[Rfam]
Nucleotides: 067
Stems, first nucleotide, its partner, number of pairs: 006021004034050003041061002
Number, partner (000 for none) and nucleotide at each position: 001000a002000a003000a004000a005000g006021g007020u008019g009018g010000a011000g012000c013000a014000g015000a016000a017000a018009c019008c020007a021006c022000u023000a024000a025000a026000a027000a028000a029000a030000a031000c032000g033000a034050g035049g036048c037000g038000u039000c040000c041061c042060c043000g044000a045000a046000a047000a048036g049035c050034c051000u052000u053000a054000u055000g056000a057000g058000u059000a060042g061041g062000a063000a064000a065000c066000c067000u
Rfam assigns this 67-nucleotide RNA sequence from Flavobacterium bizetiae to the family "DUF805 RNA". Rfam 15.1 lists 281 matches to the family in 219 species.